[Rfam]
RNA sequence: CUUUACGGGAGGGAGAGCGGCGUGGGGUGAGGUUUGUGUGUAUUGUGCUGCUGUGUCGCGUGGAAGUCGCGUGCGUGUCGAGUGUGUGAGUGGAUGCAGGAGUGUGAGUGGGUGUGCGUGAGGAGUGCGUGCACCCGCUUCUGCGCCCCUCUCCCCGCCUACACCUUGAUCUUAUUUGAUCGGGUCGUGACCCCAGCCCCGCCAGGCCAACCCGAAAUGAAAAGAUCCCCUCCUGCGAAGCCCCCCGGGGCGCUGUGCAGCGAGGCCCUUGGGCGGUGGCAGCGCUGUGGUCUCCGAGGUCCCGGAGCCGGUCCGACGGGGCCCGGCGCUCAGAAAUGAUGAACUGAUCAGAUAGACGAGGCCGGGCUUGUCCCGGGCCGCUGAUUAUCCAGGCGAUUCUGAUCUGA
Numbered sequence: 001c002u003u004u005a006c007g008g009g010a011g012g013g014a015g016a017g018c019g020g021c022g023u024g025g026g027g028u029g030a031g032g033u034u035u036g037u038g039u040g041u042a043u044u045g046u047g048c049u050g051c052u053g054u055g056u057c058g059c060g061u062g063g064a065a066g067u068c069g070c071g072u073g074c075g076u077g078u079c080g081a082g083u084g085u086g087u088g089a090g091u092g093g094a095u096g097c098a099g100g101a102g103u104g105u106g107a108g109u110g111g112g113u114g115u116g117c118g119u120g121a122g123g124a125g126u127g128c129g130u131g132c133a134c135c136c137g138c139u140u141c142u143g144c145g146c147c148c149c150u151c152u153c154c155c156c157g158c159c160u161a162c163a164c165c166u167u168g169a170u171c172u173u174a175u176u177u178g179a180u181c182g183g184g185u186c187g188u189g190a191c192c193c194c195a196g197c198c199c200c201g202c203c204a205g206g207c208c209a210a211c212c213c214g215a216a217a218u219g220a221a222a223a224g225a226u227c228c229c230c231u232c233c234u235g236c237g238a239a240g241c242c243c244c245c246c247g248g249g250g251c252g253c254u255g256u257g258c259a260g261c262g263a264g265g266c267c268c269u270u271g272g273g274c275g276g277u278g279g280c281a282g283c284g285c286u287g288u289g290g291u292c293u294c295c296g297a298g299g300u301c302c303c304g305g306a307g308c309c310g311g312u313c314c315g316a317c318g319g320g321g322c323c324c325g326g327c328g329c330u331c332a333g334a335a336a337u338g339a340u341g342a343a344c345u346g347a348u349c350a351g352a353u354a355g356a357c358g359a360g361g362c363c364g365g366g367c368u369u370g371u372c373c374c375g376g377g378c379c380g381c382u383g384a385u386u387a388u389c390c391a392g393g394c395g396a397u398u399c400u401g402a403u404c405u406g407a
Stems, first nucleotide, its partner, number of pairs: 053146004057073006090105001092103001095100001108134003113129005175223003180215004185210001187208001189207001192206002196202002244299002246296005252291003257288002260285003265280003268276002307327005312321003331406004341399003345395002360379004365374002
Small Cajal body-specific RNA 2: a 407-nucleotide RNA sequence from Trichechus manatus.
Taxonomically the source falls in Trichechus manatus (Eukaryota, Eumetazoa, Sarcopterygii, Dipnotetrapodomorpha).
Rfam links the family to the GO terms RNA processing and nucleolus.
On this family, see Tycowski et al., Curr Biol 2004: "Guide RNAs with 5' caps and novel box C/D snoRNA-like domains for modification of snRNAs in metazoa".
Rfam classes the family as a small Cajal body RNA.